[Rfam]
RNA sequence: GAAGUGCGCCAGACCGCCGCUGGUACUAGCCGAAAGGCCAACGCUUGCGUUGGGUCGAAAGAUCGUACUGGAGGAACGUCCGGACUGCAUAGGGCGGCGUAGCAGCUAACAGCUGUCCACCGUGAGGUGAGGAUCAGAGCAACAGAGACGAGUCCCGGGGGCGUGCCGCAAGGUAGACCACCGGGGGUGAAACGGGCAAUCUCUACGCGCAGCAAUACCAAGUAGGCACACGUUGACGGGGCCCCCGGAGUGUGCGGGUAGGUAGCACCGAGCUGUCAGGCGACUGGCAGCCAAGAUUAAUGGCGGUCACAUGGCGGGCAACCGUUGUGCACAGAAUCCGGCUUAUCGGCGCACUUCACAC
Numbered sequence: 001g002a003a004g005u006g007c008g009c010c011a012g013a014c015c016g017c018c019g020c021u022g023g024u025a026c027u028a029g030c031c032g033a034a035a036g037g038c039c040a041a042c043g044c045u046u047g048c049g050u051u052g053g054g055u056c057g058a059a060a061g062a063u064c065g066u067a068c069u070g071g072a073g074g075a076a077c078g079u080c081c082g083g084a085c086u087g088c089a090u091a092g093g094g095c096g097g098c099g100u101a102g103c104a105g106c107u108a109a110c111a112g113c114u115g116u117c118c119a120c121c122g123u124g125a126g127g128u129g130a131g132g133a134u135c136a137g138a139g140c141a142a143c144a145g146a147g148a149c150g151a152g153u154c155c156c157g158g159g160g161g162c163g164u165g166c167c168g169c170a171a172g173g174u175a176g177a178c179c180a181c182c183g184g185g186g187g188u189g190a191a192a193c194g195g196g197c198a199a200u201c202u203c204u205a206c207g208c209g210c211a212g213c214a215a216u217a218c219c220a221a222g223u224a225g226g227c228a229c230a231c232g233u234u235g236a237c238g239g240g241g242c243c244c245c246c247g248g249a250g251u252g253u254g255c256g257g258g259u260a261g262g263u264a265g266c267a268c269c270g271a272g273c274u275g276u277c278a279g280g281c282g283a284c285u286g287g288c289a290g291c292c293a294a295g296a297u298u299a300a301u302g303g304c305g306g307u308c309a310c311a312u313g314g315c316g317g318g319c320a321a322c323c324g325u326u327g328u329g330c331a332c333a334g335a336a337u338c339c340g341g342c343u344u345a346u347c348g349g350c351g352c353a354c355u356u357c358a359c360a361c
Base pairs, nucleotide, nucleotide: 001357002356003355004354005353006352007351008350009349010348011346012308013307014306015305016304017303018302020071021070022069023068024067025066026065028063076344078342080341081340082339083338084337085212086211087210088209092244093243094242095241097208098207099206100205101204102116103115104114105113106112117131118129119128120127121126132203133202137201138200139197140196154186155185156183157182158181160179161178216264217263218262219261226255227254228253229252230251231250237247238246239245272291273290274289275288276287277286278285279284
RNA: Bacterial RNase P class A
Organism: Comamonas sp. 26